This 73-nucleotide sequence from Trichinella papuae belongs to the Rfam family "mir-252 microRNA precursor family". The family is grouped with related families in Rfam's "mir-252 microRNA precursor family". Rfam links the family to the GO terms RISC complex and miRNA-mediated post-transcriptional gene silencing. For this family Rfam cites "Direct sequencing and expression analysis of a large number of miRNAs in Aedes aegypti and a multi-species survey of novel mosquito miRNAs" (Li et al., BMC Genomics, 2009). Pairs were carried over by alignment from the consensus structure, which was predicted with RNAalifold.
[Rfam]
RNA sequence: CGAGGAUUCUAAGUAGUAGUGCCGCAGGUCACGGUAUUUCAAGUCACCUGCUCUCUGCUACUUAAGAUUCUUG
Numbered sequence: 001c002g003a004g005g006a007u008u009c010u011a012a013g014u015a016g017u018a019g020u021g022c023c024g025c026a027g028g029u030c031a032c033g034g035u036a037u038u039u040c041a042a043g044u045c046a047c048c049u050g051c052u053c054u055c056u057g058c059u060a061c062u063u064a065a066g067a068u069u070c071u072u073g
Stems, first nucleotide, its partner, number of pairs: 001073007010064010024051006